A member of the RNA family "Fungal signal recognition particle RNA" from Thielaviopsis punctulata, 302 nucleotides long.
It scores 112 bits against the family's covariance model.
It is annotated as a non-coding RNA gene.
A reference for the family is Wild et al. (2002), "Towards the structure of the mammalian signal recognition particle", Curr Opin Struct Biol.
[Rfam]
RNA sequence: GGCUGUAAUGGUCUUAUCGGAUGAAGGUAUCUCACAAUUUCCCAAUUCGGUUUUUCCACCAAAUCCGUAGGCUCCCUCCCGUCGGCGCCCAGCACGAACGCUGCGGAAGCUUUGUGACACUCGCUUGGGAAACCAGCGACGCUGUCCGGCUCUAAGCAUUCGGGGAUCACCCUUCAGGAAGGUUUCACUUCGCAGAGAAAUCCUCACCGUCGUGUGGCGAGUUGGAUUACGAUCGCGGGGGGCUUGGUGGGCUGGAUUGGGAUGGAGGUUUCAACUCCAAUAUAUAUUUUUUUUUCGAGGUU
Numbered sequence: 001g002g003c004u005g006u007a008a009u010g011g012u013c014u015u016a017u018c019g020g021a022u023g024a025a026g027g028u029a030u031c032u033c034a035c036a037a038u039u040u041c042c043c044a045a046u047u048c049g050g051u052u053u054u055u056c057c058a059c060c061a062a063a064u065c066c067g068u069a070g071g072c073u074c075c076c077u078c079c080c081g082u083c084g085g086c087g088c089c090c091a092g093c094a095c096g097a098a099c100g101c102u103g104c105g106g107a108a109g110c111u112u113u114g115u116g117a118c119a120c121u122c123g124c125u126u127g128g129g130a131a132a133c134c135a136g137c138g139a140c141g142c143u144g145u146c147c148g149g150c151u152c153u154a155a156g157c158a159u160u161c162g163g164g165g166a167u168c169a170c171c172c173u174u175c176a177g178g179a180a181g182g183u184u185u186c187a188c189u190u191c192g193c194a195g196a197g198a199a200a201u202c203c204u205c206a207c208c209g210u211c212g213u214g215u216g217g218c219g220a221g222u223u224g225g226a227u228u229a230c231g232a233u234c235g236c237g238g239g240g241g242g243c244u245u246g247g248u249g250g251g252c253u254g255g256a257u258u259g260g261g262a263u264g265g266a267g268g269u270u271u272c273a274a275c276u277c278c279a280a281u282a283u284a285u286a287u288u289u290u291u292u293u294u295u296c297g298a299g300g301u302u
Base pairs, nucleotide, nucleotide: 001013002012003011017298018297019296020295021294024290025289026288027287028286029285030284032268033267035265037263038262039261042260043259044258045257046256047255048254049253050252051251052250053249060071063068075242076241077240079238080237081236082235084233086231087230089225090224091223092222093221095219096218098215099214100213101212103210104209105208106207112149113148114147116146117145118144119143121139122138123137124136125135127134128133152156162205163204164203165202166201167200172197173196174195179190180189181188

The family's consensus secondary structure is taken from published work.